[Rfam]
RNA sequence: AUGCAUCUACUAUGUGACAGACCUGGAGCAGUCACUGUCUGCUGCUAAGGUUUCCACUACAGAUGCAAGUAAAAUAUGUCCUUGUACUUUCUGUCUUUUUUAUUGUGGCAGCCAAGGAUGAAUAGAGGAAUACAGGA
Numbered sequence: 001a002u003g004c005a006u007c008u009a010c011u012a013u014g015u016g017a018c019a020g021a022c023c024u025g026g027a028g029c030a031g032u033c034a035c036u037g038u039c040u041g042c043u044g045c046u047a048a049g050g051u052u053u054c055c056a057c058u059a060c061a062g063a064u065g066c067a068a069g070u071a072a073a074a075u076a077u078g079u080c081c082u083u084g085u086a087c088u089u090u091c092u093g094u095c096u097u098u099u100u101u102a103u104u105g106u107g108g109c110a111g112c113c114a115a116g117g118a119u120g121a122a123u124a125g126a127g128g129a130a131u132a133c134a135g136g137a
Base pairs, nucleotide, nucleotide: 002067003066004065005064006063007062008061015056016055019053020052021051022050023049027043028042029041030040031039079129080128081127082126083125087120090117091116092115095111096110098108099107